[Rfam]
mir-30 microRNA precursor family: a 71-nucleotide RNA sequence from Xenopus tropicalis.
RNA sequence: GCGACUGUAAACAUCCUCGACUGGAAGCUGUGAAGCAGUUGAAGGGCUUUCAGUCAGAUGUUUGCAGCUGC
Numbered sequence: 001g002c003g004a005c006u007g008u009a010a011a012c013a014u015c016c017u018c019g020a021c022u023g024g025a026a027g028c029u030g031u032g033a034a035g036c037a038g039u040u041g042a043a044g045g046g047c048u049u050u051c052a053g054u055c056a057g058a059u060g061u062u063u064g065c066a067g068c069u070g071c
Base pairs, nucleotide, nucleotide: 001071002070003069005067006066007065008064009063010062011061012060013059014058015057020054021053022052023051024050025049026048027047028046029045

Background: It is one of the family's seed sequences.